[Rfam]
RNA sequence: AUGUCAAAACUGAUUUUGUAAUAGUCAGGACAGGCUAAACAUUUGCUGUGUUAAGACCAAGCAUGUGUCCCUAGACUUAGUUCUUUCCCUAGGUCUGGUUUUAUAAAUACUGGUGAUAAAC
Numbered sequence: 001a002u003g004u005c006a007a008a009a010c011u012g013a014u015u016u017u018g019u020a021a022u023a024g025u026c027a028g029g030a031c032a033g034g035c036u037a038a039a040c041a042u043u044u045g046c047u048g049u050g051u052u053a054a055g056a057c058c059a060a061g062c063a064u065g066u067g068u069c070c071c072u073a074g075a076c077u078u079a080g081u082u083c084u085u086u087c088c089c090u091a092g093g094u095c096u097g098g099u100u101u102u103a104u105a106a107a108u109a110c111u112g113g114u115g116a117u118a119a120a121c
Base pairs, nucleotide, nucleotide: 005033010028011027012026013025014024015023056114057113058112059111061110071098072097073096074095075094076093077092078091079090080089
This 121-nucleotide sequence from Aotus nancymaae belongs to the Rfam family "Small nucleolar RNA SNORA72". The source organism's lineage runs through Eukaryota, Chordata, Gnathostomata, Euteleostomi and Aotus. The match comes from Rfam's covariance-model search (102 bits). The base pairs follow the family's consensus structure, which was predicted with PFOLD. On this family, see Ganot et al., Genes Dev 1997: "The family of box ACA small nucleolar RNAs is defined by an evolutionarily conserved secondary structure and ubiquitous sequence elements essential for RNA accumulation". From the family's description: U72 is a member of the H/ACA class of snoRNAs. The snoRNA gene is located in intron 4 of the ribosomal L30 protein gene in human, mouse and chicken.